RNA sequence: CAAGGAAGCAUCCAAAGGGAUCGCAUUGAUCCUUGUUGAUAGAGAUCGAGAUUGGAUCAUGCGAUCCUUUUGGAUCCCUCCUC
Numbered sequence: 001c002a003a004g005g006a007a008g009c010a011u012c013c014a015a016a017g018g019g020a021u022c023g024c025a026u027u028g029a030u031c032c033u034u035g036u037u038g039a040u041a042g043a044g045a046u047c048g049a050g051a052u053u054g055g056a057u058c059a060u061g062c063g064a065u066c067c068u069u070u071u072g073g074a075u076c077c078c079u080c081c082u083c
Stems, first nucleotide, its partner, number of pairs: 003082004008077001010075012023062004028058005
Shown here is an 83-nucleotide RNA from Zingiber officinale, a member of the family "mir-393 microRNA precursor family". Gene Ontology terms of the family: RISC complex and miRNA-mediated post-transcriptional gene silencing. The match comes from Rfam's covariance-model search (75 bits). For this family Rfam cites "Role of microRNAs and other sRNAs of plants in their changing environments" (Kruszka et al., J Plant Physiol, 2012). The source organism's lineage runs through Eukaryota, Viridiplantae, Tracheophyta, Magnoliopsida and Zingiber.